[Rfam]
RNA sequence: AGUCCAUCCCCGGGGGGCUGCGCCUGAGCAGCUGAGAGGUGACUGACGUCACGACCCGCCGAACCUGAUCCCGUUAGCGCGGGCGGAGGGAGGGAAUGGUGUCCGCGC
Numbered sequence: 001a002g003u004c005c006a007u008c009c010c011c012g013g014g015g016g017g018c019u020g021c022g023c024c025u026g027a028g029c030a031g032c033u034g035a036g037a038g039g040u041g042a043c044u045g046a047c048g049u050c051a052c053g054a055c056c057c058g059c060c061g062a063a064c065c066u067g068a069u070c071c072c073g074u075u076a077g078c079g080c081g082g083g084c085g086g087a088g089g090g091a092g093g094g095a096a097u098g099g100u101g102u103c104c105g106c107g108c
Stems, first nucleotide, its partner, number of pairs: 007095004011058004017032005039052005064089003070083004
Source information
This 108-nucleotide RNA sequence from Sphingomonas sp. Leaf357 belongs to the Rfam family "TPP riboswitch aptamer (THI element)". The match comes from Rfam's covariance-model search (65 bits). Vitamin B(1) in its active form thiamin pyrophosphate (TPP) is an essential coenzyme that is synthesised by coupling of pyrimidine and thiazole moieties in bacteria. Rfam links the family to the GO term thiamine pyrophosphate binding. The family's consensus secondary structure is taken from published work.